[Rfam]
RNA sequence: AUUGCUAUGAUGAGAUAAGACACCAUUUGGUGUUUUUGGGCAGUGGAGGGCGCCUAUGCCCUAGCCGUGAGCCCAUUCUACUAACGACUUCUCCUUCCACUGAGCACU
Numbered sequence: 001a002u003u004g005c006u007a008u009g010a011u012g013a014g015a016u017a018a019g020a021c022a023c024c025a026u027u028u029g030g031u032g033u034u035u036u037u038g039g040g041c042a043g044u045g046g047a048g049g050g051c052g053c054c055u056a057u058g059c060c061c062u063a064g065c066c067g068u069g070a071g072c073c074c075a076u077u078c079u080a081c082u083a084a085c086g087a088c089u090u091c092u093c094c095u096u097c098c099a100c101u102g103a104g105c106a107c108u
Base pairs, nucleotide, nucleotide: 001108003106004105005104

A member of the RNA family "Small nucleolar RNA Z152/R70/R12/" from Nyssa sinensis, 108 nucleotides long. Its family is annotated with RNA processing and nucleolus in the Gene Ontology. The organism belongs to Nyssa, within Eukaryota. Rfam classes the family as a C/D-box small nucleolar RNA. For this family Rfam cites "Identification of 66 box C/D snoRNAs in Arabidopsis thaliana: extensive gene duplications generated multiple isoforms predicting new ribosomal RNA 2'-O-methylation sites" (Barneche et al., J Mol Biol, 2001).